RNA sequence: AAAGAUGGGCAGGUGAUCGCGGCUGCAGAGACGAAAGGCUGCAGGUGAGGAAAGUCCGGGCUUCAAAGGGCAGGAUGCCGGAUAACGUCCGGUGGAGGAAACUCCCAGGAAAGUGCAACAGAAAAGAACCGCCGGCCAAGGCCGGUAAGGGUGCAAAGGCGGUGUAAGAGACCACCGCCCGGGUGGUAACAUCCGGGGCACAUGUAAACCCCAUCCGAAGCAAGACCGAACAGGACAGAUCGGCGGCCCGUCGGUUGUCUCUCGAGACAACACUGUCCGGGUAGGUUGCUCGACUGUGCCGGUGACGGCACAGCUAGAUAGAUGAUCAUCCACGACAUAACCCGGCUUAUCGCCCGUCUUUCUCU
Numbered sequence: 001a002a003a004g005a006u007g008g009g010c011a012g013g014u015g016a017u018c019g020c021g022g023c024u025g026c027a028g029a030g031a032c033g034a035a036a037g038g039c040u041g042c043a044g045g046u047g048a049g050g051a052a053a054g055u056c057c058g059g060g061c062u063u064c065a066a067a068g069g070g071c072a073g074g075a076u077g078c079c080g081g082a083u084a085a086c087g088u089c090c091g092g093u094g095g096a097g098g099a100a101a102c103u104c105c106c107a108g109g110a111a112a113g114u115g116c117a118a119c120a121g122a123a124a125a126g127a128a129c130c131g132c133c134g135g136c137c138a139a140g141g142c143c144g145g146u147a148a149g150g151g152u153g154c155a156a157a158g159g160c161g162g163u164g165u166a167a168g169a170g171a172c173c174a175c176c177g178c179c180c181g182g183g184u185g186g187u188a189a190c191a192u193c194c195g196g197g198g199c200a201c202a203u204g205u206a207a208a209c210c211c212c213a214u215c216c217g218a219a220g221c222a223a224g225a226c227c228g229a230a231c232a233g234g235a236c237a238g239a240u241c242g243g244c245g246g247c248c249c250g251u252c253g254g255u256u257g258u259c260u261c262u263c264g265a266g267a268c269a270a271c272a273c274u275g276u277c278c279g280g281g282u283a284g285g286u287u288g289c290u291c292g293a294c295u296g297u298g299c300c301g302g303u304g305a306c307g308g309c310a311c312a313g314c315u316a317g318a319u320a321g322a323u324g325a326u327c328a329u330c331c332a333c334g335a336c337a338u339a340a341c342c343c344g345g346c347u348u349a350u351c352g353c354c355c356g357u358c359u360u361u362c363u364c365u
Base pairs, nucleotide, nucleotide: 001361002360003359004358005357006356007355008354009353010352011350012330013329014328015327016326017325018324020047021046023044024043025042026041027040028039052348053347054346056345057344058343059342060341061220062219063218064217068263069262070261073216074215075214076213077212078092079091080090081089082088093107094105095104096103097102108211109210113209114208115205116204117203129150130149131146132145133144134143135142136141158176159175161173162172163171177199178197179196180195181194182193183192184191185190224287225286226285227284233278234277235276236275237274238273254271255270256269257268258267294313295312296311297310298309299308300307301306
The family of this 365-nucleotide RNA sequence from Stomatobaculum longum is "Bacterial RNase P class A".
The family's consensus secondary structure is taken from published work.
The match comes from Rfam's covariance-model search (307 bits).
The family's RNA type in Rfam is ribozyme.
Rfam's curators write: Ribonuclease P (RNase P) is a ubiquitous endoribonuclease, found in archaea, bacteria and eukarya as well as chloroplasts and mitochondria.